[Rfam]
Nucleotides: 054
Stems, first nucleotide, its partner, number of pairs: 001054004
Number, partner (000 for none) and nucleotide at each position: 001054u002053g003052c004051u005000g006000g007000u008000c009000g010000u011000g012000a013000a014000g015000c016000g017000c018000c019000c020000u021000c022000u023000c024000u025000c026000a027000g028000a029000g030000c031000a032000c033000u034000g035000g036000g037000c038000c039000c040000u041000g042000c043000c044000g045000g046000g047000g048000g049000u050000a051004a052003g053002c054001a

Notes
The family of this 54-nucleotide RNA sequence from Equus caballus is "Z6 small nucleolar RNA". Pairs were carried over by alignment from the consensus structure, which was predicted with PFOLD. A reference for the family is Galardi et al. (2002), "Purified box C/D snoRNPs are able to reproduce site-specific 2'-O-methylation of target RNA in vitro", Mol Cell Biol. The organism belongs to Equus, within Eukaryota. The family's RNA type in Rfam is C/D-box small nucleolar RNA.